[Rfam]
RNA sequence: GACGAUAAACGAAUUUCGUAAUAACCAUUGCGGACGUGGGGGCAGUACCCACCACCUCCACCAUUGCAACUUAUGGGGGUGAACUAGAUUCGACGGGUGACUAAAGGCUAUUCUUUUGUUCGGGAUUGUUCCACCGUGACGGGCUAAUUUAUAAUUGCUAACGAAAGUUACGCACUUGCUGCCUAA
Numbered sequence: 001g002a003c004g005a006u007a008a009a010c011g012a013a014u015u016u017c018g019u020a021a022u023a024a025c026c027a028u029u030g031c032g033g034a035c036g037u038g039g040g041g042g043c044a045g046u047a048c049c050c051a052c053c054a055c056c057u058c059c060a061c062c063a064u065u066g067c068a069a070c071u072u073a074u075g076g077g078g079g080u081g082a083a084c085u086a087g088a089u090u091c092g093a094c095g096g097g098u099g100a101c102u103a104a105a106g107g108c109u110a111u112u113c114u115u116u117u118g119u120u121c122g123g124g125a126u127u128g129u130u131c132c133a134c135c136g137u138g139a140c141g142g143g144c145u146a147a148u149u150u151a152u153a154a155u156u157g158c159u160a161a162c163g164a165a166a167g168u169u170a171c172g173c174a175c176u177u178g179c180u181g182c183c184u185a186a
Base pairs, nucleotide, nucleotide: 001120002119003118004117005116014110017107026099027098028097031095032094036052037051038050039049040048053081054080055079056078057077058076059075121136122135123134

permuted transfer-messenger RNA: a 186-nucleotide RNA sequence from Pelagibacterales bacterium SAG-MED48. The family's consensus secondary structure is taken from published work. It is annotated as a non-coding RNA gene. Its family is annotated with RNA catabolic process in the Gene Ontology. About the family: Bacterial tmRNA, also known as 10Sa RNA or SsrA, is named for its dual tRNA and mRNA-like properties. Its role is to liberate the mRNA from a stalled ribosome.